The record is a 176-nucleotide RNA from Clostridium frigidicarnis, which matches "T-box leader" in Rfam.
RNA sequence: UAUUUAGCUAUGAUAAGAAUGAGUAAAUUUAUAUUUUCAUUUAGAGAGAAAGUGGUUGGUGAAAGCUUUUUGAAAUAUAAAUUGAAGGCUGUCUUUGAGCUUUGUCAAUAGAGUGAUGGAUUAUAUUUUAAUCCAUAAUUAGGGUGGUACCACGGAAACAAGCUUUCGUCCCUUGG
Dot-bracket structure: ......((......((((.......((((((.....(((........((((((...........)))))))))....))))))........))))...))...............(((((((.......)))))))....((((.......(((((........)))))))))...

The family's RNA type in Rfam is cis-regulatory leader. On this family, see Grundy et al., RNA 2000: "tRNA determinants for transcription antitermination of the Bacillus subtilis tyrS gene". The match comes from Rfam's covariance-model search (116 bits). Taxonomically the source falls in Clostridium (Bacteria, Bacillati, Bacillota, Eubacteriales).